Nucleotides: 045
Base pairs, nucleotide, nucleotide: 006021007020008019009018010017011016
Number, partner (000 for none) and nucleotide at each position: 001000a002000c003000a004000a005000a006021g007020g008019c009018u010017c011016u012000u013000u014000u015000a016011g017010g018009a019008g020007c021006c022000a023000c024000c025000c026000a027000c028000a029000a030000a031000a032000c033000c034000u035000u036000c037000a038000a039000g040000a041000g042000c043000u044000u045000g